[Rfam]
RNA sequence: GGGCGGCCACUGCCGAAUCGCCCCAUGAGGCGAACCGGGGACCCACCGCUUCGCAGUGCGAAGCACCGGGGUGAAUCCGCGCACUGCGGUAGGGCGUUCUUCGGCCCGAACCCGACAGCUAACCCGGUAGGCGGACGAAGAGAAGGA
Numbered sequence: 001g002g003g004c005g006g007c008c009a010c011u012g013c014c015g016a017a018u019c020g021c022c023c024c025a026u027g028a029g030g031c032g033a034a035c036c037g038g039g040g041a042c043c044c045a046c047c048g049c050u051u052c053g054c055a056g057u058g059c060g061a062a063g064c065a066c067c068g069g070g071g072u073g074a075a076u077c078c079g080c081g082c083a084c085u086g087c088g089g090u091a092g093g094g095c096g097u098u099c100u101u102c103g104g105c106c107c108g109a110a111c112c113c114g115a116c117a118g119c120u121a122a123c124c125c126g127g128u129a130g131g132c133g134g135a136c137g138a139a140g141a142g143a144a145g146g147a
Base pairs, nucleotide, nucleotide: 011133012132013131014130018033019032020031021030022029034128035127036126037125038124039123044068069113070112071111077089078088079087080086092107093106094105095104
Source information
The record is a 147-nucleotide RNA from Stackebrandtia endophytica, which matches "c-di-AMP riboswitch aptamer (ydaO/yuaA leader)" in Rfam. A search with the family's covariance model found it, with a score of 84 bits. The organism belongs to Stackebrandtia, within Bacteria. Rfam links the family to the GO terms regulation of gene expression and cyclic-di-AMP binding. The family has 106 seed sequences and 7,607 matches in Rfam 15.1.